[Rfam]
RNA: mir-375 microRNA precursor family
Organism: Strongylocentrotus purpuratus
RNA sequence: UUUGGCACGAGCUCAACGUGCAAAACUUGAGAUAAGGUCAGCUGUUCGGCUGGCCGCUACAUGCUGUUUUGUUCGUUCGGCUCGCGUCAAAU
Numbered sequence: 001u002u003u004g005g006c007a008c009g010a011g012c013u014c015a016a017c018g019u020g021c022a023a024a025a026c027u028u029g030a031g032a033u034a035a036g037g038u039c040a041g042c043u044g045u046u047c048g049g050c051u052g053g054c055c056g057c058u059a060c061a062u063g064c065u066g067u068u069u070u071g072u073u074c075g076u077u078c079g080g081c082u083c084g085c086g087u088c089a090a091a092u
Base pairs, nucleotide, nucleotide: 001091002090003089005087006086008084009083010082011081012080013079017075018074020072021071022070023069025067026066